[Rfam]
RNA sequence: GAGUUUAUGGCAGUGGCGAAAUUAAGAAGUUGAAACUUCCGAGUUAGAGGGAAACCAACAAGUCCGCAGCCUUCGGGCAAGGGACGAGGUGUGAAAGCGCCUGAAGUCACUGCUUUAAGACCCGAAACCAGUCGAUCUAUUCCUGGGCAAGGUGAAAUCUCUCGCCAGAGAGAUGGAGGCCUGAAGGGGUUCUGACGUACAAAUCGUUCCUCUGACCUGGGAAUAGGGGUGAAAGGCCAAUCGAGACUGGAGAUAGCUGGUU
Numbered sequence: 001g002a003g004u005u006u007a008u009g010g011c012a013g014u015g016g017c018g019a020a021a022u023u024a025a026g027a028a029g030u031u032g033a034a035a036c037u038u039c040c041g042a043g044u045u046a047g048a049g050g051g052a053a054a055c056c057a058a059c060a061a062g063u064c065c066g067c068a069g070c071c072u073u074c075g076g077g078c079a080a081g082g083g084a085c086g087a088g089g090u091g092u093g094a095a096a097g098c099g100c101c102u103g104a105a106g107u108c109a110c111u112g113c114u115u116u117a118a119g120a121c122c123c124g125a126a127a128c129c130a131g132u133c134g135a136u137c138u139a140u141u142c143c144u145g146g147g148c149a150a151g152g153u154g155a156a157a158u159c160u161c162u163c164g165c166c167a168g169a170g171a172g173a174u175g176g177a178g179g180c181c182u183g184a185a186g187g188g189g190u191u192c193u194g195a196c197g198u199a200c201a202a203a204u205c206g207u208u209c210c211u212c213u214g215a216c217c218u219g220g221g222a223a224u225a226g227g228g229g230u231g232a233a234a235g236g237c238c239a240a241u242c243g244a245g246a247c248u249g250g251a252g253a254u255a256g257c258u259g260g261u262u
Stems, first nucleotide, its partner, number of pairs: 005118003009114009020045004026039004049056002062085004069078003088101004121260002124257001128250006137226011148214001150182004157174007186211004192206001194205002228238003
Dot-bracket structure: ....(((.(((((((((..((((..((((......))))..))))...((....)).....((((...(((....)))...))))..((((......))))....))))))))).)))..((.(...((((((...((((((((((((.((((...(((((((....)))))))....))))...((((..(.((........))).))))..).))))))))))).(((.....)))......))))))......).))..

Shown here is a 262-nucleotide part of an RNA from a Theionarchaea archaeon, a member of the family "Archaeal large subunit ribosomal RNA". A search with the family's covariance model found it, with a score of 2800 bits. NCBI's taxonomy places the organism under Archaea, Methanobacteriati, Methanobacteriota, Theionarchaea. The base pairs follow the family's consensus structure, which is taken from published work.